RNA sequence: CCCCUUGAACCGGCCCGCGAAGGGUCAUAUCUUUGCGGUGUUCCGAAAGGGACUAUGGCGAUAAACGCGCCCGUAAUAAACGGAUCGGACCCGGGGGCGGUACCCGGCGGCUCCACCAUACUUCCCUCAUUGGCGGGAUCAUGGGGCCGAAACAGGAUCGACGGACGUCUAAAGGGGUUUGCUUUUGCCCGGUGAGGUACCACCGUUAUCGGUCCAAGCAUGAUAGUUGCCAAUGACAACCGUGCUCCGGUGGCCGUUGCCGCGUAAGCGGUAACCAAACCGAAAACUUAAGCCCUGUUCCUCUAGCAAGGGCAGGCGGGGUUCGCAGGCACCUGGCAACAGAAGCCUGCACU
Numbered sequence: 001c002c003c004c005u006u007g008a009a010c011c012g013g014c015c016c017g018c019g020a021a022g023g024g025u026c027a028u029a030u031c032u033u034u035g036c037g038g039u040g041u042u043c044c045g046a047a048a049g050g051g052a053c054u055a056u057g058g059c060g061a062u063a064a065a066c067g068c069g070c071c072c073g074u075a076a077u078a079a080a081c082g083g084a085u086c087g088g089a090c091c092c093g094g095g096g097g098c099g100g101u102a103c104c105c106g107g108c109g110g111c112u113c114c115a116c117c118a119u120a121c122u123u124c125c126c127u128c129a130u131u132g133g134c135g136g137g138a139u140c141a142u143g144g145g146g147c148c149g150a151a152a153c154a155g156g157a158u159c160g161a162c163g164g165a166c167g168u169c170u171a172a173a174g175g176g177g178u179u180u181g182c183u184u185u186u187g188c189c190c191g192g193u194g195a196g197g198u199a200c201c202a203c204c205g206u207u208a209u210c211g212g213u214c215c216a217a218g219c220a221u222g223a224u225a226g227u228u229g230c231c232a233a234u235g236a237c238a239a240c241c242g243u244g245c246u247c248c249g250g251u252g253g254c255c256g257u258u259g260c261c262g263c264g265u266a267a268g269c270g271g272u273a274a275c276c277a278a279a280c281c282g283a284a285a286a287c288u289u290a291a292g293c294c295c296u297g298u299u300c301c302u303c304u305a306g307c308a309a310g311g312g313c314a315g316g317c318g319g320g321g322u323u324c325g326c327a328g329g330c331a332c333c334u335g336g337c338a339a340c341a342g343a344a345g346c347c348u349g350c351a352c353u
Stems, first nucleotide, its partner, number of pairs: 040053005057189005067182002069178004081167002085164003091107005108149007190205004196215002199213003319334004325350006
Annotation: Alphaproteobacteria transfer-messenger RNA: a 353-nucleotide RNA sequence from Rhodovulum imhoffii. The organism belongs to Rhodovulum, within Bacteria. It is annotated as a non-coding RNA gene. It scores 294 bits against the family's covariance model. Its Rfam clan is "tRNA clan". Its family is annotated with RNA catabolic process in the Gene Ontology.